[Rfam]
RNA sequence: CUACAGGCGAUGAAAAGAAUAAGUAGUGAUUCCCGGAAUCCACAGAAAGCAGCCGGUCGAUGAGAGGCGCGGAGAAAAGGAAUCAUGAAUACCUCUUGGAGCUUCCCUCUGAAACCGCAGCGCGCGUGCGGCAAGUAGGAGGAGACGGACGCACCCGUUAUCGUGCAGGGUAUCAUGGCGUACCUGGUAAGGCGGCAGGCGUGAGCGUGCCGUGAAAAAAGGUGGUAACACGGGAUCUGGCUCUCGUCCUUUUA
Number, nucleotide and partner (000 for none) at each position: 001c000002u000003a000004c000005a000006g000007g102008c101009g000010a000011u000012g000013a000014a000015a097016a096017g095018a094019a000020u000021a000022a000023g000024u000025a000026g086027u085028g084029a083030u082031u081032c000033c000034c000035g000036g000037a000038a000039u072040c071041c000042a000043c000044a000045g000046a000047a000048a000049g070050c069051a000052g068053c067054c066055g000056g000057u000058c000059g000060a000061u000062g000063a000064g000065a000066g054067g053068c052069g050070c049071g040072g039073a000074g000075a000076a000077a000078a000079g000080g000081a031082a030083u029084c028085a027086u026087g000088a000089a000090u000091a000092c000093c000094u018095c017096u016097u015098g000099g000100a000101g008102c007103u000104u144105c000106c142107c141108u140109c139110u138111g000112a000113a000114a000115c000116c000117g000118c000119a000120g000121c000122g000123c000124g000125c000126g000127u000128g000129c000130g000131g000132c000133a000134a000135g000136u000137a000138g110139g109140a108141g107142g106143a000144g104145a000146c157147g156148g155149a000150c000151g000152c000153a000154c000155c148156c147157g146158u000159u000160a000161u000162c000163g000164u000165g000166c000167a000168g000169g000170g000171u000172a000173u000174c000175a000176u000177g000178g210179c209180g208181u000182a000183c000184c000185u000186g000187g000188u000189a000190a000191g000192g000193c000194g000195g000196c000197a000198g000199g000200c000201g000202u000203g000204a000205g000206c000207g000208u180209g179210c178211c000212g000213u000214g000215a000216a000217a000218a000219a251220a250221g249222g248223u000224g000225g000226u000227a000228a000229c000230a247231c246232g245233g244234g243235a000236u000237c000238u000239g000240g000241c000242u000243c234244u233245c232246g231247u230248c222249c221250u220251u219252u000253u000254a000
Rfam assigns this 254-nucleotide RNA from Lachnoclostridium sp. An196 to the family "T-box leader".
NCBI's taxonomy places the organism under Bacteria, Bacillati, Clostridia, Lachnospiraceae, Lachnoclostridium.
The base pairs follow the family's consensus structure, which is taken from published work.
Rfam's curators write: Uncharged tRNA acts as the effector for transcription antitermination of genes in the T-box leader family. T-boxes are found upstream of many aminoacyl-tRNA synthetase genes and some amino acid biosynthetic genes usually in Gram-positive bacteria. The anticodon of a specific tRNA base pairs to a specifier sequence within the T-box motif, and the NCCA acceptor tail of the tRNA base pairs to a conserved bulge in the T-box antiterminator hairpin.
Rfam links the family to the GO term tRNA binding.